Rfam assigns this 158-nucleotide sequence from Syncephalastrum racemosum to the family "small nucleolar RNA snR35". Rfam links the family to the GO terms RNA processing and nucleolus. The family is grouped with related families in Rfam's "SNORA13 clan". The family's consensus secondary structure was predicted with RNAalifold.

[Rfam]
RNA sequence: UCUGUGCGGCGUAUAUGUAAAGUACUACGUGUUGCCUGUUUGCUCUUCUGUGCAUUUGCCGGGCGUCUAAAAUAGUUCAAGAAAUUGUGGAUGUCUUAACGCCCUAUGCGUGCUGGCUUUUUUUUUUGCUUGUGCGCGGGCUGGUGAUUCGGAUAUUU
Numbered sequence: 001u002c003u004g005u006g007c008g009g010c011g012u013a014u015a016u017g018u019a020a021a022g023u024a025c026u027a028c029g030u031g032u033u034g035c036c037u038g039u040u041u042g043c044u045c046u047u048c049u050g051u052g053c054a055u056u057u058g059c060c061g062g063g064c065g066u067c068u069a070a071a072a073u074a075g076u077u078c079a080a081g082a083a084a085u086u087g088u089g090g091a092u093g094u095c096u097u098a099a100c101g102c103c104c105u106a107u108g109c110g111u112g113c114u115g116g117c118u119u120u121u122u123u124u125u126u127u128g129c130u131u132g133u134g135c136g137c138g139g140g141c142u143g144g145u146g147a148u149u150c151g152g153a154u155a156u157u158u
Base pairs, nucleotide, nucleotide: 024076025075034064035063036062037061038060041054042053043052088151089150090149091148092147105139107138108137109136110135111134112133113132116129117128
NCBI's taxonomy places the organism under Eukaryota, Opisthokonta, Mucoromycotina, Mucorales, Syncephalastrum.
For this family Rfam cites "Identification and functional analysis of 20 Box H/ACA small nucleolar RNAs (snoRNAs) from Schizosaccharomyces pombe" (Li et al., J Biol Chem, 2005).